This 118-nucleotide RNA sequence from Desulfoscipio gibsoniae belongs to the Rfam family "Molybdenum/Tungsten riboswitch aptamer (Moco RNA motif)". The literature on the family includes a 2008 paper in Mol Microbiol by Regulski et al., "in molybdenum cofactor and tungsten cofactor metabolism". Its family is annotated with molybdenum ion binding, regulation of gene expression and tungstate binding in the Gene Ontology. A search with the family's covariance model found it, with a score of 69 bits. Pairs were carried over by alignment from the consensus structure, which is taken from published work. NCBI's taxonomy places the organism under Bacteria, Bacillati, Eubacteriales, Desulfallaceae, Desulfoscipio gibsoniae.
RNA sequence: CAUGAAUAGUUGUUCCGAGCCGGUUUGUCUAAAGCAAUGCUAUGAUUAUCCGGCCGAUAGGGUUUGACGGGAAACCGUCAAGCCUCCCAGUGCGGAAAGGAACGCAGUAUGUGACCUG
Numbered sequence: 001c002a003u004g005a006a007u008a009g010u011u012g013u014u015c016c017g018a019g020c021c022g023g024u025u026u027g028u029c030u031a032a033a034g035c036a037a038u039g040c041u042a043u044g045a046u047u048a049u050c051c052g053g054c055c056g057a058u059a060g061g062g063u064u065u066g067a068c069g070g071g072a073a074a075c076c077g078u079c080a081a082g083c084c085u086c087c088c089a090g091u092g093c094g095g096a097a098a099g100g101a102a103c104g105c106a107g108u109a110u111g112u113g114a115c116c117u118g
Base pairs, nucleotide, nucleotide: 011104012103013102014101015100016099019054020053021052022051023050025048027046028045029044033041034040035039060085061084062083063082064081065080066079067078068077069076070075086095087094